[Rfam]
RNA sequence: CCAACGGCUCUUUUAAGAGCCACACACACUCCCACCUAAAGUAGC
Numbered sequence: 001c002c003a004a005c006g007g008c009u010c011u012u013u014u015a016a017g018a019g020c021c022a023c024a025c026a027c028a029c030u031c032c033c034a035c036c037u038a039a040a041g042u043a044g045c
Stems, first nucleotide, its partner, number of pairs: 006021006

Background: Shown here is a 45-nucleotide sequence from Carassius auratus, a member of the family "Histone 3' UTR stem-loop". Lineage of the source: Eukaryota > Eumetazoa > Clupeocephala > Cyprinoidei > Carassius.